[Rfam]
RNA sequence: GUGCACAUGAUGGAAAAAAUUAAACCACCUGAAAUUUGUGAUGUCUUCAAAGGAACCGCUGAUGCAC
Numbered sequence: 001g002u003g004c005a006c007a008u009g010a011u012g013g014a015a016a017a018a019a020u021u022a023a024a025c026c027a028c029c030u031g032a033a034a035u036u037u038g039u040g041a042u043g044u045c046u047u048c049a050a051a052g053g054a055a056c057c058g059c060u061g062a063u064g065c066a067c
Stems, first nucleotide, its partner, number of pairs: 001067005
Small nucleolar RNA SNORD42: a 67-nucleotide RNA from Equus caballus. The match comes from Rfam's covariance-model search (74 bits). About the family: snoRNA U42 is found in intron 3 of the ribosomal protein L23a (RPL23a) gene in humans and is also present in mice.